Fluoride riboswitch aptamer (crcB RNA motif): a 63-nucleotide RNA sequence from Candidatus Nitrosoglobus terrae. Taxonomically the source falls in Candidatus Nitrosoglobus (Bacteria, Pseudomonadati, Chromatiales, Chromatiaceae). A search with the family's covariance model found it, with a score of 54 bits.
[Rfam]
RNA sequence: UCUUGUAAUGGGAAUGGAGCUUCCCAAUAACCGCUCGUAAAAGCUGAUGGCUCCUACUGAAAC
Numbered sequence: 001u002c003u004u005g006u007a008a009u010g011g012g013a014a015u016g017g018a019g020c021u022u023c024c025c026a027a028u029a030a031c032c033g034c035u036c037g038u039a040a041a042a043g044c045u046g047a048u049g050g051c052u053c054c055u056a057c058u059g060a061a062a063c
Base pairs, nucleotide, nucleotide: 010025011024012023013022016054017053018052019051020050021049033044034043035042